[Rfam]
RNA sequence: CUUCAACGAGCCCAGCCACAGGGGCCGGUCACCGGCGCGGUCGCGGCCGUAAGUGGCCAGCAGCGCCUGGGCCUC
Numbered sequence: 001c002u003u004c005a006a007c008g009a010g011c012c013c014a015g016c017c018a019c020a021g022g023g024g025c026c027g028g029u030c031a032c033c034g035g036c037g038c039g040g041u042c043g044c045g046g047c048c049g050u051a052a053g054u055g056g057c058c059a060g061c062a063g064c065g066c067c068u069g070g071g072c073c074u075c
Stems, first nucleotide, its partner, number of pairs: 015025003032070002038065002045058001047056003
A member of the RNA family "ASpks TB sRNA" from Streptomyces sp. MMG1121, 75 nucleotides long.
Lineage of the source: Bacteria > Bacillati > Actinomycetes > Kitasatosporales > Streptomyces.